[Rfam]
RNA sequence: ACAAUUAAAUAGCAAACCAGAUGAAAGUCUGGGACGCAAAGCCUCCGGUCUACGUUUGUAAACAAAUAUGAUAGCGGGGUUGCAUUA
Numbered sequence: 001a002c003a004a005u006u007a008a009a010u011a012g013c014a015a016a017c018c019a020g021a022u023g024a025a026a027g028u029c030u031g032g033g034a035c036g037c038a039a040a041g042c043c044u045c046c047g048g049u050c051u052a053c054g055u056u057u058g059u060a061a062a063c064a065a066a067u068a069u070g071a072u073a074g075c076g077g078g079g080u081u082g083c084a085u086u087a
Stems, first nucleotide, its partner, number of pairs: 012037002017032006040081004045077003048072003055066004
c-di-GMP-I riboswitch aptamer: an 87-nucleotide RNA sequence from Shewanella fodinae. NCBI's taxonomy places the organism under Bacteria, Pseudomonadati, Pseudomonadota, Alteromonadales, Shewanella. A search with the family's covariance model found it, with a score of 82 bits. The family has 155 seed sequences and 5,092 matches in Rfam 15.1. GEMM was predicted in a large-scale screen for bacterial structured RNA regulatory elements.